[Rfam]
RNA sequence: CACUGAGCAGUGCUUUCCAGGACUGUCCAACCUGAGAAUGUUGAAAAAGGCUCAAUCUCAGGUUUGUCAGCCCAUGAAACACUGUCUCAUA
Numbered sequence: 001c002a003c004u005g006a007g008c009a010g011u012g013c014u015u016u017c018c019a020g021g022a023c024u025g026u027c028c029a030a031c032c033u034g035a036g037a038a039u040g041u042u043g044a045a046a047a048a049g050g051c052u053c054a055a056u057c058u059c060a061g062g063u064u065u066g067u068c069a070g071c072c073c074a075u076g077a078a079a080c081a082c083u084g085u086c087u088c089a090u091a
Base pairs, nucleotide, nucleotide: 005088006087007086008084009083010082011081012080014079015078016077017076020073021072023070024069025068027066029064030063031062032061033060034059035058036057037056039054040053
Dot-bracket structure: ....((((((((.((((..((.(((.(.(((((((((.((............)).))))))))).).))).))..))))))))).)))...
A member of the RNA family "mir-1388 microRNA precursor family" from Chanos chanos, 91 nucleotides long. The family's consensus secondary structure was predicted with RNAalifold. Rfam 15.1 lists 600 matches to the family in 570 species. Lineage of the source: Eukaryota > Eumetazoa > Gnathostomata > Actinopterygii > Chanos.